[Rfam]
RNA sequence: CCCGGGCCGGUCGGCCGUUCUGCUAAAUCUCCUGCGCGCAGGUCCGGUCUGAACCGGGCCCGUCUCCCCAGCGGAGAUGUCCCAGGCGCC
Numbered sequence: 001c002c003c004g005g006g007c008c009g010g011u012c013g014g015c016c017g018u019u020c021u022g023c024u025a026a027a028u029c030u031c032c033u034g035c036g037c038g039c040a041g042g043u044c045c046g047g048u049c050u051g052a053a054c055c056g057g058g059c060c061c062g063u064c065u066c067c068c069c070a071g072c073g074g075a076g077a078u079g080u081c082c083c084a085g086g087c088g089c090c
Stems, first nucleotide, its partner, number of pairs: 003017003036089004041060007061079007